A member of the RNA family "Bacterial RNase P class A" from Deinococcus puniceus, 454 nucleotides long.
Rfam classes the family as a ribozyme.
Taxonomically the source falls in Deinococcus (Bacteria, Deinococcota, Deinococci, Deinococcales).
[Rfam]
RNA sequence: GCGGGGGAAUGCGCGGUCGCGCCCUGACCUUGAGGGGGAAACUUCUUGAGGGAGGGGUGAGGAAAGUCCGGGCACCGCAGGGCAGGAUGCCAGCUAACGGCUGGUCGGCGAGCAGAGCGCCUGCGCGAGCGCCCACAGCGCGCAGGAAGCGGCGAAGCUGAAGGACAGUGCCACAGAAACCAGACCGCCAGUGUUCUGCCGAAAAGGCAAGGUCAGGGCGAAGGCUGAACAUUGGUCAGGGUGAAACGGUGCGGUAAGAGCGCACCAGACUCGGCGGAGACGCAGGGUGCUGGUAAACCCCAUCCGGUGCAAGACCCGACAGUACGCGAGGAGCGGCCCGCUCCAUUGACCGUCAGGAUGGUCGCACGAGGCGUCUGGCAACAGCCGUCCCAGAGAGAUGACCGCUCAGCCCGCAAGGGUGACACAGAACCCGGCUUACAGUUCCCCCGCACCA
Numbered sequence: 001g002c003g004g005g006g007g008a009a010u011g012c013g014c015g016g017u018c019g020c021g022c023c024c025u026g027a028c029c030u031u032g033a034g035g036g037g038g039a040a041a042c043u044u045c046u047u048g049a050g051g052g053a054g055g056g057g058u059g060a061g062g063a064a065a066g067u068c069c070g071g072g073c074a075c076c077g078c079a080g081g082g083c084a085g086g087a088u089g090c091c092a093g094c095u096a097a098c099g100g101c102u103g104g105u106c107g108g109c110g111a112g113c114a115g116a117g118c119g120c121c122u123g124c125g126c127g128a129g130c131g132c133c134c135a136c137a138g139c140g141c142g143c144a145g146g147a148a149g150c151g152g153c154g155a156a157g158c159u160g161a162a163g164g165a166c167a168g169u170g171c172c173a174c175a176g177a178a179a180c181c182a183g184a185c186c187g188c189c190a191g192u193g194u195u196c197u198g199c200c201g202a203a204a205a206g207g208c209a210a211g212g213u214c215a216g217g218g219c220g221a222a223g224g225c226u227g228a229a230c231a232u233u234g235g236u237c238a239g240g241g242u243g244a245a246a247c248g249g250u251g252c253g254g255u256a257a258g259a260g261c262g263c264a265c266c267a268g269a270c271u272c273g274g275c276g277g278a279g280a281c282g283c284a285g286g287g288u289g290c291u292g293g294u295a296a297a298c299c300c301c302a303u304c305c306g307g308u309g310c311a312a313g314a315c316c317c318g319a320c321a322g323u324a325c326g327c328g329a330g331g332a333g334c335g336g337c338c339c340g341c342u343c344c345a346u347u348g349a350c351c352g353u354c355a356g357g358a359u360g361g362u363c364g365c366a367c368g369a370g371g372c373g374u375c376u377g378g379c380a381a382c383a384g385c386c387g388u389c390c391c392a393g394a395g396a397g398a399u400g401a402c403c404g405c406u407c408a409g410c411c412c413g414c415a416a417g418g419g420u421g422a423c424a425c426a427g428a429a430c431c432c433g434g435c436u437u438a439c440a441g442u443u444c445c446c447c448c449g450c451a452c453c454a
Stems, first nucleotide, its partner, number of pairs: 001450010011439001013405006020059006028051009064437003068434005073309004080339004085305005090104005105162001106160004163300002168298002170294003185240002187236009248266006268290001269288004274283003313363004318354003322350002330344005370389004375384003